The record is a 101-nucleotide sequence from Paenibacillus stellifer, which matches "Guanidine-I riboswitch aptamer" in Rfam. A search with the family's covariance model found it, with a score of 88 bits.
RNA sequence: UAUGAAGUCGUCUAGGGUUCCGCAGCCAUGAGGCUGGUCUGGACCGAGAGGAGACCGCAGCCGAAGCGGCUGUGACACGGAAGGAUAAAAGCCUGGGAGAU
Numbered sequence: 001u002a003u004g005a006a007g008u009c010g011u012c013u014a015g016g017g018u019u020c021c022g023c024a025g026c027c028a029u030g031a032g033g034c035u036g037g038u039c040u041g042g043a044c045c046g047a048g049a050g051g052a053g054a055c056c057g058c059a060g061c062c063g064a065a066g067c068g069g070c071u072g073u074g075a076c077a078c079g080g081a082a083g084g085a086u087a088a089a090a091g092c093c094u095g096g097g098a099g100a101u
Base pairs, nucleotide, nucleotide: 007055008054009053011051012050015045016044020042021041022039023036024035025034026033027032056074057073058072059071060070061069062068063067076096078099082094083093084092